[Rfam]
RNA sequence: CAUUGCAGAGGUCGGAAAUGGUUCCCGACGCACUCGAAAGAGUACCUGAGAUGCAGGAUACACCGCCCUGCCUGCACGU
Numbered sequence: 001c002a003u004u005g006c007a008g009a010g011g012u013c014g015g016a017a018a019u020g021g022u023u024c025c026c027g028a029c030g031c032a033c034u035c036g037a038a039a040g041a042g043u044a045c046c047u048g049a050g051a052u053g054c055a056g057g058a059u060a061c062a063c064c065g066c067c068c069u070g071c072c073u074g075c076a077c078g079u
Stems, first nucleotide, its partner, number of pairs: 004076005011029005019065004031048001032043004053071005
RNA: skipping-rope RNA